This 301-nucleotide sequence from Agrocybe chaxingu belongs to the Rfam family "Group I catalytic intron". Taxonomically the source falls in Agrocybe (Eukaryota, Agaricomycetidae, Agaricales, Agaricineae).
[Rfam]
RNA sequence: UUAACAGCCCAGGGCGCCUGCCCUAAAUCUAAAUGCUAGUCCACACGGCGUGUGGGCAAGACCUUCAAACUGACGGGGAACUCCUAAAGCUUCAGACACCAAGCCGCGUCUCGAAAGAGCGUGGUGGCCAGGUUAAUAGCCUCGGGUAAGGUAAAAGCGCUGAAGAUGUUACAAUGGACAAUCCGCAGCCAAGGCCCUAAGGAAACAUCUCUUUCUAUGGGACAGGUUCAGAGACUACAUGGAGGUCGGUCUUUAUUAUUAAAGGCUUAAGGUAUAGUCCGGCUUCAAACGAAAGUUUGGA
Numbered sequence: 001u002u003a004a005c006a007g008c009c010c011a012g013g014g015c016g017c018c019u020g021c022c023c024u025a026a027a028u029c030u031a032a033a034u035g036c037u038a039g040u041c042c043a044c045a046c047g048g049c050g051u052g053u054g055g056g057c058a059a060g061a062c063c064u065u066c067a068a069a070c071u072g073a074c075g076g077g078g079a080a081c082u083c084c085u086a087a088a089g090c091u092u093c094a095g096a097c098a099c100c101a102a103g104c105c106g107c108g109u110c111u112c113g114a115a116a117g118a119g120c121g122u123g124g125u126g127g128c129c130a131g132g133u134u135a136a137u138a139g140c141c142u143c144g145g146g147u148a149a150g151g152u153a154a155a156a157g158c159g160c161u162g163a164a165g166a167u168g169u170u171a172c173a174a175u176g177g178a179c180a181a182u183c184c185g186c187a188g189c190c191a192a193g194g195c196c197c198u199a200a201g202g203a204a205a206c207a208u209c210u211c212u213u214u215c216u217a218u219g220g221g222a223c224a225g226g227u228u229c230a231g232a233g234a235c236u237a238c239a240u241g242g243a244g245g246u247c248g249g250u251c252u253u254u255a256u257u258a259u260u261a262a263a264g265g266c267u268u269a270a271g272g273u274a275u276a277g278u279c280c281g282g283c284u285u286c287a288a289a290c291g292a293a294a295g296u297u298u299g300g301a
Stems, first nucleotide, its partner, number of pairs: 060247005066241002071187002074185004082178003188227002195221003202215004231280001233279005249266007286299005